[Rfam]
RNA sequence: AUCUUAUUAAGAGUGGCGGAGGGACUGGCCCUGUGAUGCCCGGCAACCAUCUUUCUAGAAAGGUGCUAAAUCCUACAAACAAUUGUUUGAAAGAUAAGAG
Numbered sequence: 001a002u003c004u005u006a007u008u009a010a011g012a013g014u015g016g017c018g019g020a021g022g023g024a025c026u027g028g029c030c031c032u033g034u035g036a037u038g039c040c041c042g043g044c045a046a047c048c049a050u051c052u053u054u055c056u057a058g059a060a061a062g063g064u065g066c067u068a069a070a071u072c073c074u075a076c077a078a079a080c081a082a083u084u085g086u087u088u089g090a091a092a093g094a095u096a097a098g099a100g
Stems, first nucleotide, its partner, number of pairs: 002099007013041001015040003021031003027073002042067004047063002050059003071092001076089005

About this RNA
SAM riboswitch aptamer (S box leader): a 100-nucleotide sequence from Oceanobacillus zhaokaii. About the family: The SAM riboswitch is found upstream of a number of genes which code for proteins involved in methionine or cysteine biosynthesis in Gram-positive bacteria. Pairs were carried over by alignment from the consensus structure, which is taken from published work.